[Rfam]
RNA sequence: GAAGCCCGCCAGGCCGCCGCUGGUGCAAGUUGGGAAACCACGCACUGGAGGAACGUCCGGACUGCACAGGGCAGCGCAGCAGCUAACGGCUGUCCACCGUGAGGUGAGGAUCAGAGCAACAGAGACGAGCCGCUUGAGUGCGGGUGAAACGGGCAAUCUCUGCGCGCAGCAACACCAAGUAGGCCAGCGUUGACUUGACCCGAGGAGCUGGCGGGUAGGUGGCACCGAGCCGGGUGGGCGACCCCCGGCCCAGAUUGAUGGCGGUCACGCUCCGGGCAACCGGGGCGCACAGAAUCCGGCGUAUCGGCGGGCUUCACAC
Numbered sequence: 001g002a003a004g005c006c007c008g009c010c011a012g013g014c015c016g017c018c019g020c021u022g023g024u025g026c027a028a029g030u031u032g033g034g035a036a037a038c039c040a041c042g043c044a045c046u047g048g049a050g051g052a053a054c055g056u057c058c059g060g061a062c063u064g065c066a067c068a069g070g071g072c073a074g075c076g077c078a079g080c081a082g083c084u085a086a087c088g089g090c091u092g093u094c095c096a097c098c099g100u101g102a103g104g105u106g107a108g109g110a111u112c113a114g115a116g117c118a119a120c121a122g123a124g125a126c127g128a129g130c131c132g133c134u135u136g137a138g139u140g141c142g143g144g145u146g147a148a149a150c151g152g153g154c155a156a157u158c159u160c161u162g163c164g165c166g167c168a169g170c171a172a173c174a175c176c177a178a179g180u181a182g183g184c185c186a187g188c189g190u191u192g193a194c195u196u197g198a199c200c201c202g203a204g205g206a207g208c209u210g211g212c213g214g215g216u217a218g219g220u221g222g223c224a225c226c227g228a229g230c231c232g233g234g235u236g237g238g239c240g241a242c243c244c245c246c247g248g249c250c251c252a253g254a255u256u257g258a259u260g261g262c263g264g265u266c267a268c269g270c271u272c273c274g275g276g277c278a279a280c281c282g283g284g285g286c287g288c289a290c291a292g293a294a295u296c297c298g299g300c301g302u303a304u305c306g307g308c309g310g311g312c313u314u315c316a317c318a319c
Stems, first nucleotide, its partner, number of pairs: 001315010011304001012266007020048007053302003057299005062169004069201003074165005079093005094108001095106004109160002114158002116154002130143002132139002173221004183212006194204003229249006236243002
The record is a 319-nucleotide sequence from Ottowia testudinis, which matches "Bacterial RNase P class A" in Rfam. The organism belongs to Ottowia, within Bacteria. Its family is annotated with tRNA processing, ribonuclease P activity and dimeric ribonuclease P complex in the Gene Ontology. A search with the family's covariance model found it, with a score of 193 bits. By type it is a ribozyme.